[Rfam]
RNA sequence: CUGGUUUUCUGCAGUGUCACGCUCUGUGUAUUUGACAAGCUGAGUUGGACACUCAAUGUGGAAGAGUGUCAGUUUGUCAAAUACCCCAAGUGAGGCACAUGCCUAG
Numbered sequence: 001c002u003g004g005u006u007u008u009c010u011g012c013a014g015u016g017u018c019a020c021g022c023u024c025u026g027u028g029u030a031u032u033u034g035a036c037a038a039g040c041u042g043a044g045u046u047g048g049a050c051a052c053u054c055a056a057u058g059u060g061g062a063a064g065a066g067u068g069u070c071a072g073u074u075u076g077u078c079a080a081a082u083a084c085c086c087c088a089a090g091u092g093a094g095g096c097a098c099a100u101g102c103c104u105a106g
Stems, first nucleotide, its partner, number of pairs: 020092004026086001028084014048070004053065002
RNA: mir-223 microRNA precursor family
Organism: Jaculus jaculus